[Rfam]
RNA: Glycine riboswitch aptamer
Organism: Magnetovibrio blakemorei
RNA sequence: AAAGCCGCCACGGGAGAGACUGGCCACCACCAUUUGGUAGGUCAGCGCCGAAGGAGCAACCGCCCCGGAAUCUCUCAGGCAAAUGGACCGUGAUGGCGAC
Numbered sequence: 001a002a003a004g005c006c007g008c009c010a011c012g013g014g015a016g017a018g019a020c021u022g023g024c025c026a027c028c029a030c031c032a033u034u035u036g037g038u039a040g041g042u043c044a045g046c047g048c049c050g051a052a053g054g055a056g057c058a059a060c061c062g063c064c065c066c067g068g069a070a071u072c073u074c075u076c077a078g079g080c081a082a083a084u085g086g087a088c089c090g091u092g093a094u095g096g097c098g099a100c
Stems, first nucleotide, its partner, number of pairs: 006095002009092005020045006047080003050076002054074003060068002